[Rfam]
RNA sequence: GUUAAAUCGCUGAAGAGGAAAAGUAAAAAGGAUGUGUCAUCUUAUUAGAGAGAGUCACCGUGGCUGAAAGUGACUUAAGAUAAUCUCCUUUCGAAUGCCCCUCUGAGUCCUAUUUCCAAACGGAUAACUUUCCAAAGUAGUUUUAGGCGGGUGAAAGACCGUUAUCUUUCAGAGUGGAGCACUUUGUUUUUUUGUGCUCAAACAGAGUGGAACCGCGCCAAAAAGCGUCUCUGUG
Numbered sequence: 001g002u003u004a005a006a007u008c009g010c011u012g013a014a015g016a017g018g019a020a021a022a023g024u025a026a027a028a029a030g031g032a033u034g035u036g037u038c039a040u041c042u043u044a045u046u047a048g049a050g051a052g053a054g055u056c057a058c059c060g061u062g063g064c065u066g067a068a069a070g071u072g073a074c075u076u077a078a079g080a081u082a083a084u085c086u087c088c089u090u091u092c093g094a095a096u097g098c099c100c101c102u103c104u105g106a107g108u109c110c111u112a113u114u115u116c117c118a119a120a121c122g123g124a125u126a127a128c129u130u131u132c133c134a135a136a137g138u139a140g141u142u143u144u145a146g147g148c149g150g151g152u153g154a155a156a157g158a159c160c161g162u163u164a165u166c167u168u169u170c171a172g173a174g175u176g177g178a179g180c181a182c183u184u185u186g187u188u189u190u191u192u193u194g195u196g197c198u199c200a201a202a203c204a205g206a207g208u209g210g211a212a213c214c215g216c217g218c219c220a221a222a223a224a225g226c227g228u229c230u231c232u233g234u235g
Stems, first nucleotide, its partner, number of pairs: 008107001015103004027091005041079003053075006110146003116140001148161003177199006204232004215228004
Rfam assigns this 235-nucleotide RNA from Salipaludibacillus neizhouensis to the family "T-box leader". A search with the family's covariance model found it, with a score of 109 bits. Rfam links the family to the GO term tRNA binding. Rfam classes the family as a cis-regulatory leader.